[Rfam]
RNA sequence: UGUAGGCUUUCCAUCAGCCUGCAAUUCUGAAGAGGCACACCAUCAUUGCCGGAAGUGCGGUAGGGACCACCCUCCAAUCCAAGGCAGACAAAGCCGGAUCAAUGCUCAUGGCAGGGCGUUGGUCUACAUAUCGCGCGUAUGGGCGUGUU
Numbered sequence: 001u002g003u004a005g006g007c008u009u010u011c012c013a014u015c016a017g018c019c020u021g022c023a024a025u026u027c028u029g030a031a032g033a034g035g036c037a038c039a040c041c042a043u044c045a046u047u048g049c050c051g052g053a054a055g056u057g058c059g060g061u062a063g064g065g066a067c068c069a070c071c072c073u074c075c076a077a078u079c080c081a082a083g084g085c086a087g088a089c090a091a092a093g094c095c096g097g098a099u100c101a102a103u104g105c106u107c108a109u110g111g112c113a114g115g116g117c118g119u120u121g122g123u124c125u126a127c128a129u130a131u132c133g134c135g136c137g138u139a140u141g142g143g144c145g146u147g148u149u
Stems, first nucleotide, its partner, number of pairs: 001023008034050004057136003083095002103118005
Description
The record is a 149-nucleotide RNA sequence from Neorhizobium sp. SOG26, which matches "speF leader" in Rfam. For this family Rfam cites "A survey of sRNA families in alpha-proteobacteria" (del Val et al., RNA Biol, 2012). Rfam classes the family as a cis-regulatory leader. Gene Ontology term of the family: regulation of gene expression. Taxonomically the source falls in Neorhizobium (Bacteria, Pseudomonadati, Alphaproteobacteria, Hyphomicrobiales). From the family's description: This family is a putative regulatory RNA structure that is found upstream of the speF gene encoding ornithine decarboxylase in Agrobacterium tumefaciens and other alpha-proteobacteria.